[Rfam]
RNA sequence: AGGCCAACAUCAACUAGAGUUGGACUGAAUGGAUUUUAAAGUUGAAUAUUUUAUCGACUGGUAUCCAAAAAUAAAAGGAACUAGAGCGGG
Numbered sequence: 001a002g003g004c005c006a007a008c009a010u011c012a013a014c015u016a017g018a019g020u021u022g023g024a025c026u027g028a029a030u031g032g033a034u035u036u037u038a039a040a041g042u043u044g045a046a047u048a049u050u051u052u053a054u055c056g057a058c059u060g061g062u063a064u065c066c067a068a069a070a071a072u073a074a075a076a077g078g079a080a081c082u083a084g085a086g087c088g089g090g
Stems, first nucleotide, its partner, number of pairs: 002026002004023005010018002055088002058084005064079003
Shown here is a 90-nucleotide RNA from Tissierella sp. P1, a member of the family "pan motif". The family's RNA type in Rfam is cis-regulatory element. The organism belongs to Tissierella, within Bacteria. The family's consensus secondary structure is taken from published work.